[Rfam]
RNA sequence: GCGGAUCCGGCUCCUCCCCCCCGAGCCGGAUGCGAGGAGUGACGGCCCCCGCUACCCCCCCCAGCGGGGGCCGUCCCAC
Number, nucleotide and partner (000 for none) at each position: 001g000002c034003g033004g000005a031006u030007c029008c028009g027010g026011c025012u024013c023014c000015u000016c000017c000018c000019c000020c000021c000022c000023g013024a012025g011026c010027c009028g008029g007030a006031u005032g000033c003034g002035a000036g000037g000038a000039g000040u000041g075042a074043c073044g072045g071046c070047c069048c068049c067050c066051g065052c064053u063054a000055c000056c000057c000058c000059c000060c000061c000062c000063a053064g052065c051066g050067g049068g048069g047070g046071c045072c044073g043074u042075c041076c000077c000078a000079c000